[Rfam]
RNA sequence: GGCAGAGUAGAAUUUUGUGCGUGGAUCAGGAAUCCAAAGUGUCUUCUGAACGGGGAGUUGUCAGAGGAACGAAUAGUCUUUUCAGACUUACGGUACAUUGUUCGCAUCCCGCUGCC
Dot-bracket structure: (((((....((((..(((((((................((.((((((((...[[[.[...))))))))))....(((........))).))).))))..)))).].]]]..)))))
Numbered sequence: 001g002g003c004a005g006a007g008u009a010g011a012a013u014u015u016u017g018u019g020c021g022u023g024g025a026u027c028a029g030g031a032a033u034c035c036a037a038a039g040u041g042u043c044u045u046c047u048g049a050a051c052g053g054g055g056a057g058u059u060g061u062c063a064g065a066g067g068a069a070c071g072a073a074u075a076g077u078c079u080u081u082u083c084a085g086a087c088u089u090a091c092g093g094u095a096c097a098u099u100g101u102u103c104g105c106a107u108c109c110c111g112c113u114g115c116c
Stems, first nucleotide, its partner, number of pairs: 001116005010103004016097004020092003039070002042068008053109003057105001075088003

A member of the RNA family "THF (Tetrahydrofolate) riboswitch aptamer" from Lachnospiraceae bacterium 3_1_57FAA_CT1, 116 nucleotides long. Rfam links the family to the GO term tetrahydrofolate metabolic process. Rfam's curators write: Tetrahydrofolate (THF) riboswitch was first reported for Ames et al. as an RNA motif in 5' untranslated (5'-UTR)regions of folate transport and biosynthesis genes in Firmicutes genomes. For this family Rfam cites "The structure of a tetrahydrofolate-sensing riboswitch reveals two ligand binding sites in a single aptamer" (Trausch et al., Structure, 2011). The base pairs follow the family's consensus structure, which is taken from published work.